Shown here is a 264-nucleotide sequence from Mus musculus, a member of the family "bip internal ribosome entry site (IRES)". This family represents the bip internal ribosome entry site (IRES). BiP protein expression has been found to be significantly enhanced by the heat shock response due to IRES-dependent translation. Pairs were carried over by alignment from the consensus structure, which was predicted with PFOLD. The source organism's lineage runs through Eukaryota, Teleostomi, Euteleostomi, Sarcopterygii and Mus.

RNA sequence: UACUGGCCGAGACAACACUGACCUGGACACUUGGGCUUCUGCGUGUGUGUGAGGUAAGCGCCGCGGCCUGCUGCUAGGCCUGCUCCGAGUCUGCUUCGUGUCUCCUCCUGACCCCGAGGCCCCUGUCGCCCUCAGACCAGAACCGUCGUCGCGUUUCGGGGCCACAGCCUGUUGCUGGACUCCUAAGACUCCUGCCUGACUGCUGAGCGACUGGUCCUCAGCGCCGGCAUGAUGAAGUUCACUGUGGUGGCGGCGGCGUUGCUG
Numbered sequence: 001u002a003c004u005g006g007c008c009g010a011g012a013c014a015a016c017a018c019u020g021a022c023c024u025g026g027a028c029a030c031u032u033g034g035g036c037u038u039c040u041g042c043g044u045g046u047g048u049g050u051g052a053g054g055u056a057a058g059c060g061c062c063g064c065g066g067c068c069u070g071c072u073g074c075u076a077g078g079c080c081u082g083c084u085c086c087g088a089g090u091c092u093g094c095u096u097c098g099u100g101u102c103u104c105c106u107c108c109u110g111a112c113c114c115c116g117a118g119g120c121c122c123c124u125g126u127c128g129c130c131c132u133c134a135g136a137c138c139a140g141a142a143c144c145g146u147c148g149u150c151g152c153g154u155u156u157c158g159g160g161g162c163c164a165c166a167g168c169c170u171g172u173u174g175c176u177g178g179a180c181u182c183c184u185a186a187g188a189c190u191c192c193u194g195c196c197u198g199a200c201u202g203c204u205g206a207g208c209g210a211c212u213g214g215u216c217c218u219c220a221g222c223g224c225c226g227g228c229a230u231g232a233u234g235a236a237g238u239u240c241a242c243u244g245u246g247g248u249g250g251c252g253g254c255g256g257c258g259u260u261g262c263u264g
Base pairs, nucleotide, nucleotide: 004253006251007250008249009248016161018159019158020157031118032117033113034112058104060102062100063099064098065097066096165177166176167175168174
The match comes from Rfam's covariance-model search (162 bits).